RNA sequence: UAAAAACUUGGGGAUGGGGUCCCCCUUUAAUUGCCCAUAUGCUUGGCUGAUGACUCCUAUCGCUUU
Numbered sequence: 001u002a003a004a005a006a007c008u009u010g011g012g013g014a015u016g017g018g019g020u021c022c023c024c025c026u027u028u029a030a031u032u033g034c035c036c037a038u039a040u041g042c043u044u045g046g047c048u049g050a051u052g053a054c055u056c057c058u059a060u061c062g063c064u065u066u
Stems, first nucleotide, its partner, number of pairs: 010025004016057006033047003
Shown here is a 66-nucleotide sequence from Candidatus Zymogenus saltonus, a member of the family "Fluoride riboswitch aptamer (crcB RNA motif)". A search with the family's covariance model found it, with a score of 48 bits. The organism belongs to Candidatus Zymogenus, within Bacteria.